[Rfam]
RNA sequence: CGGGUUCUACUUUCGGUGAUCUAGCUUUAUGACAGCUGCGUUUCACUCAUACAGCUAGAUAACCAAAGACAGAACCCG
Numbered sequence: 001c002g003g004g005u006u007c008u009a010c011u012u013u014c015g016g017u018g019a020u021c022u023a024g025c026u027u028u029a030u031g032a033c034a035g036c037u038g039c040g041u042u043u044c045a046c047u048c049a050u051a052c053a054g055c056u057a058g059a060u061a062a063c064c065a066a067a068g069a070c071a072g073a074a075c076c077c078g
Stems, first nucleotide, its partner, number of pairs: 001078005007072002011068003015064003019060008028051005
mir-9/mir-79 microRNA precursor family: a 78-nucleotide RNA from Denticeps clupeoides. The family's consensus secondary structure was predicted with RNAalifold. Its family is annotated with RISC complex and miRNA-mediated post-transcriptional gene silencing in the Gene Ontology. A search with the family's covariance model found it, with a score of 62 bits. Rfam 15.1 lists 5,647 matches to the family in 934 species.